[Rfam]
RNA sequence: AGUUAAAAAUUUCAUUCGUUUUUUCUAUUAGAAACCGACAUGAUCAACAGAAUAACCAAAAAAUGACAAAUGGUAUGCCACGUAUACCUUAUUCUAACGUAUGAAGAUCAAUUUUUAUUAGUAGAAAUUGAUGGAAUUUUUAACA
Numbered sequence: 001a002g003u004u005a006a007a008a009a010u011u012u013c014a015u016u017c018g019u020u021u022u023u024u025c026u027a028u029u030a031g032a033a034a035c036c037g038a039c040a041u042g043a044u045c046a047a048c049a050g051a052a053u054a055a056c057c058a059a060a061a062a063a064u065g066a067c068a069a070a071u072g073g074u075a076u077g078c079c080a081c082g083u084a085u086a087c088c089u090u091a092u093u094c095u096a097a098c099g100u101a102u103g104a105a106g107a108u109c110a111a112u113u114u115u116u117a118u119u120a121g122u123a124g125a126a127a128u129u130g131a132u133g134g135a136a137u138u139u140u141u142a143a144c145a
Base pairs, nucleotide, nucleotide: 002144003143004142005141006140007139008138009137010136011135012134013133014132015131016130018128019127020126021125022124023123025121026120029117030116031115032114033113